[Rfam]
RNA sequence: AGUCACGAGACCCAGCGACAAGCCCUGGCUUGCUGGGCGGCAACCCUCACGCACGUGGCGGGGUGCCCCAGGUGAAUGACUAGGCCGCAGUGUGAGAUUGACCGAUCCGCAGUGUGGCAAGCACGGCAG
Numbered sequence: 001a002g003u004c005a006c007g008a009g010a011c012c013c014a015g016c017g018a019c020a021a022g023c024c025c026u027g028g029c030u031u032g033c034u035g036g037g038c039g040g041c042a043a044c045c046c047u048c049a050c051g052c053a054c055g056u057g058g059c060g061g062g063g064u065g066c067c068c069c070a071g072g073u074g075a076a077u078g079a080c081u082a083g084g085c086c087g088c089a090g091u092g093u094g095a096g097a098u099u100g101a102c103c104g105a106u107c108c109g110c111a112g113u114g115u116g117g118c119a120a121g122c123a124c125g126g127c128a129g
Base pairs, nucleotide, nucleotide: 001081002080003079004078009038011037012036013035014034015033016032021030022029039067040066041065044063045062046061048058050057084118085117086116087115088114089113091111092110093109

The family of this 129-nucleotide RNA sequence from Flexivirga endophytica is "SAM (S-adenosyl methionine) riboswitch aptamer". Gene Ontology terms of the family: S-adenosylmethionine metabolic process and regulation of gene expression. A search with the family's covariance model found it, with a score of 80 bits.